[Rfam]
RNA sequence: AGAUAUCAAUUUCAUAUGACUCGUAUAAUAUUGGGGAUAUGGCCCAAAAGUUUCUACCGGAUGACCACUGUAAUCGUCCGACUAUGAGUGAUAGCGCAUCAGCU
Numbered sequence: 001a002g003a004u005a006u007c008a009a010u011u012u013c014a015u016a017u018g019a020c021u022c023g024u025a026u027a028a029u030a031u032u033g034g035g036g037a038u039a040u041g042g043c044c045c046a047a048a049a050g051u052u053u054c055u056a057c058c059g060g061a062u063g064a065c066c067a068c069u070g071u072a073a074u075c076g077u078c079c080g081a082c083u084a085u086g087a088g089u090g091a092u093a094g095c096g097c098a099u100c101a102g103c104u
Base pairs, nucleotide, nucleotide: 019089020088021087022086023085024084025083029049031047032046033045034044035043058080059079060078061077062076063075064074
The family of this 104-nucleotide RNA from Paenibacillus polymyxa is "Purine riboswitch aptamer". Pairs were carried over by alignment from the consensus structure, which is taken from published work. Taxonomically the source falls in Paenibacillus polymyxa (Bacteria, Bacillati, Bacillota, Paenibacillus). From the family's description: Riboswitches are metabolite binding domains within certain messenger RNAs that serve as precision sensors for their corresponding targets. Allosteric rearrangement of mRNA structure is mediated by ligand binding, and this results in modulation of gene expression. A class of riboswitches that selectively recognises guanine and becomes saturated at concentrations as low as 5 nM. In Bacillus subtilis, this mRNA motif is located on at least five separate transcriptional units that together encode 17 genes that are mostly involved in purine transport and purine nucleotide biosynthesis. A search with the family's covariance model found it, with a score of 73 bits.